[Rfam]
RNA sequence: GGCGGUCUUCGGUAGUGGCGGCCGGUACUCGCCGGCCGCUUCGAUCGACGGCCGUC
Number, nucleotide and partner (000 for none) at each position: 001g056002g055003c054004g053005g052006u051007c050008u000009u048010c047011g046012g045013u044014a000015g000016u000017g040018g039019c038020g037021g036022c035023c034024g033025g032026u031027a000028c000029u000030c000031g026032c025033c024034g023035g022036c021037c020038g019039c018040u017041u000042c000043g000044a013045u012046c011047g010048a009049c000050g007051g006052c005053c004054g003055u002056c001
Description
A member of the RNA family "Actino-pnp RNA" from Mycolicibacterium sp. P9-64, 56 nucleotides long. Pairs were carried over by alignment from the consensus structure, which is taken from published work. It scores 60 bits against the family's covariance model. The family's RNA type in Rfam is cis-regulatory element.